[Rfam]
The record is a 67-nucleotide sequence from Cyprinus carpio, which matches "miR-430 microRNA precursor family" in Rfam. Rfam 15.1 lists 24,817 matches to the family in 105 species. Clan: mir-290 clan. The family's consensus secondary structure was predicted with RNAalifold. The literature on the family includes a 2005 paper in Science by Giraldez et al., "MicroRNAs regulate brain morphogenesis in zebrafish". It is one of the family's seed sequences.
RNA sequence: AUCGGUACCCUCACAAUGGCACUGACUUGUCUGUUGUAUUUGGUAAGUGCUAUUUGUUGGGGUAGUU
Numbered sequence: 001a002u003c004g005g006u007a008c009c010c011u012c013a014c015a016a017u018g019g020c021a022c023u024g025a026c027u028u029g030u031c032u033g034u035u036g037u038a039u040u041u042g043g044u045a046a047g048u049g050c051u052a053u054u055u056g057u058u059g060g061g062g063u064a065g066u067u
Stems, first nucleotide, its partner, number of pairs: 004066001006064006013057004018051006025044003